[Rfam]
RNA sequence: CAGGGCUGGGGAAGGGCUGCUGGGUGGUUCCAGCCAGCCUCACCCGCGCCCGAGAUCAGCUCCCAGGCGGGCUCCCUGCAGGGGUUCGGCCUGUGCAGUACCAGGUGUGAGCAUCCAUGCAGCGUUUUGAUGGUCAUGUAUGAUACUGCAUACAACA
Numbered sequence: 001c002a003g004g005g006c007u008g009g010g011g012a013a014g015g016g017c018u019g020c021u022g023g024g025u026g027g028u029u030c031c032a033g034c035c036a037g038c039c040u041c042a043c044c045c046g047c048g049c050c051c052g053a054g055a056u057c058a059g060c061u062c063c064c065a066g067g068c069g070g071g072c073u074c075c076c077u078g079c080a081g082g083g084g085u086u087c088g089g090c091c092u093g094u095g096c097a098g099u100a101c102c103a104g105g106u107g108u109g110a111g112c113a114u115c116c117a118u119g120c121a122g123c124g125u126u127u128u129g130a131u132g133g134u135c136a137u138g139u140a141u142g143a144u145a146c147u148g149c150a151u152a153c154a155a156c157a
Base pairs, nucleotide, nucleotide: 003051004050005049006048008045009044010043015039016038017037018036019034020033021032022031024030063084064083067079068078069077070076092152093151094150095149096148097147098146099145100144102142103141108136109135110134112132113131114130115129119126

The family of this 157-nucleotide RNA sequence from Gavia stellata is "Small Cajal body specific RNA 16". The family's consensus secondary structure was predicted with RNAfold. The match comes from Rfam's covariance-model search (107 bits). The source organism's lineage runs through Eukaryota, Sauria, Theropoda, Aequornithes and Gavia. Its family is annotated with nucleolus and RNA processing in the Gene Ontology. About the family: scaRNAs are a specific class of small nuclear RNAs which localise to the Cajal bodies and guide the modification of RNA polymerase II transcribed spliceosomal RNAs U1, U2, U4, U5 and U12. ACA47 belongs to the H/ACA box class of guide RNAs as it has the predicted hairpin-hinge-hairpin-tail structure, the conserved H/ACA-box motifs and is found associated with GAR1.